Shown here is a 73-nucleotide RNA from Camphora micrantha, a member of the family "Small nucleolar RNA R160". The base pairs follow the family's consensus structure. Rfam's curators write: snoR160 is a C/D box small nucleolar RNA, which acts as a methylation guide for 25S ribosomal RNA in plants. snoR160 has been alternatively named snoZ270 in rice. It scores 64 bits against the family's covariance model. Rfam links the family to the GO terms nucleolus and RNA processing.
[Rfam]
RNA sequence: AGCAAAAUGAUGAGCUCAUGCAUCUGAAUCUGAUGUGGAAAGAUUUAAUGAUCUUCAAAGUUCUCUGAUUGCU
Numbered sequence: 001a002g003c004a005a006a007a008u009g010a011u012g013a014g015c016u017c018a019u020g021c022a023u024c025u026g027a028a029u030c031u032g033a034u035g036u037g038g039a040a041a042g043a044u045u046u047a048a049u050g051a052u053c054u055u056c057a058a059a060g061u062u063c064u065c066u067g068a069u070u071g072c073u
Stems, first nucleotide, its partner, number of pairs: 001073005